[Rfam]
RNA: c-di-AMP riboswitch aptamer (ydaO/yuaA leader)
RNA sequence: GAACCAGUCUCGCUGAGUCCCUUUUACAGGGAACGGGGGAACCGAUAUGGCUUACAGUACGUCCGGUGUAUGUGCAAGAGAUAAUAUCUCUCAGUAUCCGGCUCGACCGAAAUUCAUUUCCCGGAUGGGAUUGAACAGGUAGAGAAGCCGUAUUUCGAUUUCUUUCUGGGUCUUCGGGGUGAAUGUGAAGGCGACCGCCAUGAGCGGUUGACCUAAGCUAGGGCGACUCUCUACGUCCGAACCCGACAGCUAACCCCGUAAGCGUAACAAGAGAGAAGCC
Numbered sequence: 001g002a003a004c005c006a007g008u009c010u011c012g013c014u015g016a017g018u019c020c021c022u023u024u025u026a027c028a029g030g031g032a033a034c035g036g037g038g039g040a041a042c043c044g045a046u047a048u049g050g051c052u053u054a055c056a057g058u059a060c061g062u063c064c065g066g067u068g069u070a071u072g073u074g075c076a077a078g079a080g081a082u083a084a085u086a087u088c089u090c091u092c093a094g095u096a097u098c099c100g101g102c103u104c105g106a107c108c109g110a111a112a113u114u115c116a117u118u119u120c121c122c123g124g125a126u127g128g129g130a131u132u133g134a135a136c137a138g139g140u141a142g143a144g145a146a147g148c149c150g151u152a153u154u155u156c157g158a159u160u161u162c163u164u165u166c167u168g169g170g171u172c173u174u175c176g177g178g179g180u181g182a183a184u185g186u187g188a189a190g191g192c193g194a195c196c197g198c199c200a201u202g203a204g205c206g207g208u209u210g211a212c213c214u215a216a217g218c219u220a221g222g223g224c225g226a227c228u229c230u231c232u233a234c235g236u237c238c239g240a241a242c243c244c245g246a247c248a249g250c251u252a253a254c255c256c257c258g259u260a261a262g263c264g265u266a267a268c269a270a271g272a273g274a275g276a277a278g279c280c
Stems, first nucleotide, its partner, number of pairs: 011264004018032003033259006043176002177244003185218002221238004